Shown here is a 148-nucleotide RNA from Enterococcus rivorum, a member of the family "glmS glucosamine-6-phosphate activated ribozyme aptamer". The source organism's lineage runs through Bacteria, Bacillati, Bacilli, Enterococcaceae and Enterococcus.
RNA sequence: AUAAUUAGGAUAGCGCCAGACCUGUUAAACAGGUGACGAGGAAAGAGUUUAUCGAAAGCAUCGGCGGAUGACUCUAGGGACUGCACUCUAAAGGAAAGAAUCAAAAAAUAAUUGCGAAAUUAUAACAAAGGUCUUUCCAUGCAGAAUA
Numbered sequence: 001a002u003a004a005u006u007a008g009g010a011u012a013g014c015g016c017c018a019g020a021c022c023u024g025u026u027a028a029a030c031a032g033g034u035g036a037c038g039a040g041g042a043a044a045g046a047g048u049u050u051a052u053c054g055a056a057a058g059c060a061u062c063g064g065c066g067g068a069u070g071a072c073u074c075u076a077g078g079g080a081c082u083g084c085a086c087u088c089u090a091a092a093g094g095a096a097a098g099a100a101u102c103a104a105a106a107a108a109u110a111a112u113u114g115c116g117a118a119a120u121u122a123u124a125a126c127a128a129a130g131g132u133c134u135u136u137c138c139a140u141g142c143a144g145a146a147u148a
Stems, first nucleotide, its partner, number of pairs: 020034006044075005052064004076089004093138007108123006